[Rfam]
RNA sequence: UUGCGGGACCGGGCCCCUCUGACGAUCGACGGCGAUCGUGAUGUCGGACCGCACAG
Dot-bracket structure: .....((.((((.........(((((((....)))))))....)))).))......
terC RNA: a 56-nucleotide RNA from Phenylobacterium kunshanense.
The organism belongs to Phenylobacterium, within Bacteria.
The family's RNA type in Rfam is cis-regulatory element.